[Rfam]
RNA sequence: CCGGUGGGGUCCGCGCAGUCUGCGCGGGGGAUUCAGCUCCGGGGCUCGGUCGGUCGCUUGGUGCGCGGGUGGAGGGGGGUCUCCUCCUUCCCCGCCGCCUCGCUGGCCCGUGCCUUCUCCGGGGUGCACUUCCUCCGUGGCGGUGCGCCGCGACCGGCUCCUGUUCGGCUUGGAAAGGCUCGGGGCGAAGGUGGCCCGCGGCGCGAGCCGCGUGCUUUACAGCGCCCCCUGGCCCGUACCUCGCCGCUUCCGGGGGCCGUGGACUUAGUACUCGCUGCGCCCUCUCUCCCCGCGGGGAGGGACGGGGCCCCCCGCUCCCGGCGUGGCUGUCGAGCGGGGCGGACUGUUCUCAGUGCGCCCCAACCGCGUCGCGUCGCCCGGGCGGGGAUCGGCUCUCGUAAAAGGCGUCAGGGGUCUGCGGCGAUGUCGGCAACCCACCGGACCCGUCUUGAAACACGG
Numbered sequence: 001c002c003g004g005u006g007g008g009g010u011c012c013g014c015g016c017a018g019u020c021u022g023c024g025c026g027g028g029g030g031a032u033u034c035a036g037c038u039c040c041g042g043g044g045c046u047c048g049g050u051c052g053g054u055c056g057c058u059u060g061g062u063g064c065g066c067g068g069g070u071g072g073a074g075g076g077g078g079g080u081c082u083c084c085u086c087c088u089u090c091c092c093c094g095c096c097g098c099c100u101c102g103c104u105g106g107c108c109c110g111u112g113c114c115u116u117c118u119c120c121g122g123g124g125u126g127c128a129c130u131u132c133c134u135c136c137g138u139g140g141c142g143g144u145g146c147g148c149c150g151c152g153a154c155c156g157g158c159u160c161c162u163g164u165u166c167g168g169c170u171u172g173g174a175a176a177g178g179c180u181c182g183g184g185g186c187g188a189a190g191g192u193g194g195c196c197c198g199c200g201g202c203g204c205g206a207g208c209c210g211c212g213u214g215c216u217u218u219a220c221a222g223c224g225c226c227c228c229c230u231g232g233c234c235c236g237u238a239c240c241u242c243g244c245c246g247c248u249u250c251c252g253g254g255g256g257c258c259g260u261g262g263a264c265u266u267a268g269u270a271c272u273c274g275c276u277g278c279g280c281c282c283u284c285u286c287u288c289c290c291c292g293c294g295g296g297g298a299g300g301g302a303c304g305g306g307g308c309c310c311c312c313c314g315c316u317c318c319c320g321g322c323g324u325g326g327c328u329g330u331c332g333a334g335c336g337g338g339g340c341g342g343a344c345u346g347u348u349c350u351c352a353g354u355g356c357g358c359c360c361c362a363a364c365c366g367c368g369u370c371g372c373g374u375c376g377c378c379c380g381g382g383c384g385g386g387g388a389u390c391g392g393c394u395c396u397c398g399u400a401a402a403a404g405g406c407g408u409c410a411g412g413g414g415u416c417u418g419c420g421g422c423g424a425u426g427u428c429g430g431c432a433a434c435c436c437a438c439c440g441g442a443c444c445c446g447u448c449u450u451g452a453a454a455c456a457c458g459g
Base pairs, nucleotide, nucleotide: 001441002440003439004438005437006436007435008434010432012430023139024138025137026136027135028134029133030132031131146423147422148421149420150419151418152417444459445458446457447456

The family of this 459-nucleotide part of an RNA from Gasterosteus aculeatus is "Eukaryotic large subunit ribosomal RNA". The organism belongs to Gasterosteus, within Eukaryota.